[Rfam]
RNA sequence: CUCAGAUGCAGGACUUAGUUCAUUGGUGAGCAUUGAGCCACACAGGAAUUGUUCACAGUGGCUAAGUUCAGUACCUGAC
Numbered sequence: 001c002u003c004a005g006a007u008g009c010a011g012g013a014c015u016u017a018g019u020u021c022a023u024u025g026g027u028g029a030g031c032a033u034u035g036a037g038c039c040a041c042a043c044a045g046g047a048a049u050u051g052u053u054c055a056c057a058g059u060g061g062c063u064a065a066g067u068u069c070a071g072u073a074c075c076u077g078a079c
Stems, first nucleotide, its partner, number of pairs: 011069010026056007